[Rfam]
RNA sequence: AACAUGUGAUGACAAAAUGUUUCGGUCCCAGAUGAUGCUGUGUGAUUACUUAAUGAGAUCACCUGAUGUU
Numbered sequence: 001a002a003c004a005u006g007u008g009a010u011g012a013c014a015a016a017a018u019g020u021u022u023c024g025g026u027c028c029c030a031g032a033u034g035a036u037g038c039u040g041u042g043u044g045a046u047u048a049c050u051u052a053a054u055g056a057g058a059u060c061a062c063c064u065g066a067u068g069u070u
Stems, first nucleotide, its partner, number of pairs: 001070004
The family of this 70-nucleotide RNA from Myripristis murdjan is "Small nucleolar RNA SNORD73".
Pairs were carried over by alignment from the consensus structure, which was predicted with PFOLD.
The family's RNA type in Rfam is C/D-box small nucleolar RNA.
The literature on the family includes a 1998 paper in Gene by Rebane et al., "A novel snoRNA (U73) is encoded within the introns of the human and mouse ribosomal protein S3a genes".
Its family is annotated with nucleolus and RNA processing in the Gene Ontology.
Lineage of the source: Eukaryota > Chordata > Actinopteri > Neoteleostei > Myripristis.